[Rfam]
Nucleotides: 076
Stems, first nucleotide, its partner, number of pairs: 013043004020076002023073004027039003048065006
Number, partner (000 for none) and nucleotide at each position: 001000u002000a003000u004000u005000c006000a007000u008000u009000c010000c011000a012000a013043a014042g015041g016040c017000c018000a019000u020076a021075g022000c023073a024072g025071a026070a027039g028038u029037g030000u031000u032000c033000a034000c035000a036000g037029c038028a039027u040016g041015c042014c043013u044000a045000u046000g047000u048065c049064a050063g051062a052061u053060u054000c055000g056000a057000a058000c059000a060053a061052a062051u063050c064049u065048g066000c067000a068000a069000a070026u071025u072024c073023u074000u075021c076020u
The family of this 76-nucleotide RNA sequence from Alligator sinensis is "Mammalian CPEB3 ribozyme". Rfam's curators write: The mammalian CPEB3 ribozyme is a self cleaving RNA located in the second intron of the CPEB3 gene which belongs to a family of genes regulating messenger RNA polyadenylation. Taxonomically the source falls in Alligator (Eukaryota, Eumetazoa, Archelosauria, Archosauria). The family's consensus secondary structure is taken from published work. The match comes from Rfam's covariance-model search (46 bits).